The family of this 592-nucleotide part of an RNA from Alienimonas californiensis is "Bacterial small subunit ribosomal RNA". Pairs were carried over by alignment from the consensus structure, which is taken from published work. The family has 99 seed sequences and 42,628 matches in Rfam 15.1.
RNA sequence: UGACGGGGGCUCACACAAGCGGUGGAGCAUGUGGCUUAAUUCGAGGCAACGCGAAGAACCUUAUCCCGGAUUUGACAUGGUCGGAUUAGGUCCCAGAGAUGGGACUGACGCCUUCGGGUGGAACGAUCACAGGUGCUGCAUGGCUGUCGUCAGCUCGUGCCGUGAGGUGUCGCGUUAAGUCGCUGAACGAGCGAAACCCCUGCCGCCAGUUGCCAGCAUGUAACGAUGGGGACUCUGGCGGGACCGCCGGCGUCAAGCCGGAGGAAGGCGGGGACGACGUCAAGUCAUCAUGGCCUUUAUGUCCGGGGCUGCACACGUGCUACAAUGGAACCGACAGCGGGACGCAAACCUGCAAAGGCAAGCCAACCCCUCAAACGGUUCCCCAGUUCGGAUUGAGGGCUGCAAUUCGCCCUCAUGAAGCCGGAAUCGCUAGUAAUCGCGGGUCAGCCAUACCGCGGUGAAUGUGUUCCUGAGCCUUGUACACACCGCCCGUCAAGCCACGAAAGCGGGGGGCACCCGAAGUCGCUGCGCGAUCCCUCGGGACGCAGGCGCCGAAGGUGACCUCCGUGAUUGGGACUAAGUCGUAACAAGG
Numbered sequence: 001u002g003a004c005g006g007g008g009g010c011u012c013a014c015a016c017a018a019g020c021g022g023u024g025g026a027g028c029a030u031g032u033g034g035c036u037u038a039a040u041u042c043g044a045g046g047c048a049a050c051g052c053g054a055a056g057a058a059c060c061u062u063a064u065c066c067c068g069g070a071u072u073u074g075a076c077a078u079g080g081u082c083g084g085a086u087u088a089g090g091u092c093c094c095a096g097a098g099a100u101g102g103g104a105c106u107g108a109c110g111c112c113u114u115c116g117g118g119u120g121g122a123a124c125g126a127u128c129a130c131a132g133g134u135g136c137u138g139c140a141u142g143g144c145u146g147u148c149g150u151c152a153g154c155u156c157g158u159g160c161c162g163u164g165a166g167g168u169g170u171c172g173c174g175u176u177a178a179g180u181c182g183c184u185g186a187a188c189g190a191g192c193g194a195a196a197c198c199c200c201u202g203c204c205g206c207c208a209g210u211u212g213c214c215a216g217c218a219u220g221u222a223a224c225g226a227u228g229g230g231g232a233c234u235c236u237g238g239c240g241g242g243a244c245c246g247c248c249g250g251c252g253u254c255a256a257g258c259c260g261g262a263g264g265a266a267g268g269c270g271g272g273g274a275c276g277a278c279g280u281c282a283a284g285u286c287a288u289c290a291u292g293g294c295c296u297u298u299a300u301g302u303c304c305g306g307g308g309c310u311g312c313a314c315a316c317g318u319g320c321u322a323c324a325a326u327g328g329a330a331c332c333g334a335c336a337g338c339g340g341g342a343c344g345c346a347a348a349c350c351u352g353c354a355a356a357g358g359c360a361a362g363c364c365a366a367c368c369c370c371u372c373a374a375a376c377g378g379u380u381c382c383c384c385a386g387u388u389c390g391g392a393u394u395g396a397g398g399g400c401u402g403c404a405a406u407u408c409g410c411c412c413u414c415a416u417g418a419a420g421c422c423g424g425a426a427u428c429g430c431u432a433g434u435a436a437u438c439g440c441g442g443g444u445c446a447g448c449c450a451u452a453c454c455g456c457g458g459u460g461a462a463u464g465u466g467u468u469c470c471u472g473a474g475c476c477u478u479g480u481a482c483a484c485a486c487c488g489c490c491c492g493u494c495a496a497g498c499c500a501c502g503a504a505a506g507c508g509g510g511g512g513g514c515a516c517c518c519g520a521a522g523u524c525g526c527u528g529c530g531c532g533a534u535c536c537c538u539c540g541g542g543a544c545g546c547a548g549g550c551g552c553c554g555a556a557g558g559u560g561a562c563c564u565c566c567g568u569g570a571u572u573g574g575g576a577c578u579a580a581g582u583c584g585u586a587a588c589a590a591g592g
Stems, first nucleotide, its partner, number of pairs: 001483002003480003007477007015467002019430005024323001026321008034312002040055004065307007078129002081126003089106007109120004132296002135294004141290002143285003146281001148279002153192006159168003172183003198273004203241007213230002217228003244264002247261005327382007339370003344363002349358003389420001394415007436459007486591001488588001491584002496578002499575001501573003506568007514560004522553001524551004530546003535542002